Source information: Rfam assigns this 311-nucleotide sequence from Flavobacterium aquatile to the family "Bacterial RNase P class A". Ribonuclease P (RNase P) is a ubiquitous endoribonuclease, found in archaea, bacteria and eukarya as well as chloroplasts and mitochondria. Its best characterised activity is the generation of mature 5'-ends of tRNAs by cleaving the 5'-leader elements of precursor-tRNAs. Cellular RNase Ps are ribonucleoproteins. RNA from bacterial RNase Ps retains its catalytic activity in the absence of the protein subunit, i.e. it is a ribozyme.
RNA sequence: ACCGCAGACCGCCUUAUCGUCCCGAUUUAAAUUGGGGAGGAAAGUCCGGACACCAAAGAGUAGCAUAGCGGAUAACAUCCGUCAAUUCAAGAAAUUGGAUUAGGACAAGUGCAACAGAAAGUAUGUACAGUUCGGCUGUAGUGAAACCAGGUAAACUCUAUGCGGUGAAAUUUCAAGUAUAUCGACAUUUAAGGAUUACUCGUCCGUUGUCGAAGGGUAGAAAGAUUGAAUCCCGAAGUAAUUCGGGAUCUAGAUAAAUGAUAAGGCAUCUUUACUGAUGACAGAAUCCGGCUUAUAGGUCUGCUUUUUUU
Numbered sequence: 001a002c003c004g005c006a007g008a009c010c011g012c013c014u015u016a017u018c019g020u021c022c023c024g025a026u027u028u029a030a031a032u033u034g035g036g037g038a039g040g041a042a043a044g045u046c047c048g049g050a051c052a053c054c055a056a057a058g059a060g061u062a063g064c065a066u067a068g069c070g071g072a073u074a075a076c077a078u079c080c081g082u083c084a085a086u087u088c089a090a091g092a093a094a095u096u097g098g099a100u101u102a103g104g105a106c107a108a109g110u111g112c113a114a115c116a117g118a119a120a121g122u123a124u125g126u127a128c129a130g131u132u133c134g135g136c137u138g139u140a141g142u143g144a145a146a147c148c149a150g151g152u153a154a155a156c157u158c159u160a161u162g163c164g165g166u167g168a169a170a171u172u173u174c175a176a177g178u179a180u181a182u183c184g185a186c187a188u189u190u191a192a193g194g195a196u197u198a199c200u201c202g203u204c205c206g207u208u209g210u211c212g213a214a215g216g217g218u219a220g221a222a223a224g225a226u227u228g229a230a231u232c233c234c235g236a237a238g239u240a241a242u243u244c245g246g247g248a249u250c251u252a253g254a255u256a257a258a259u260g261a262u263a264a265g266g267c268a269u270c271u272u273u274a275c276u277g278a279u280g281a282c283a284g285a286a287u288c289c290g291g292c293u294u295a296u297a298g299g300u301c302u303g304c305u306u307u308u309u310u311u
Stems, first nucleotide, its partner, number of pairs: 001307001004304007011296001012266007020037007042294003046291005051167004058201004063163005068082005083103001084101007104158002109156002111152002126140006171223004182213005193205004230249008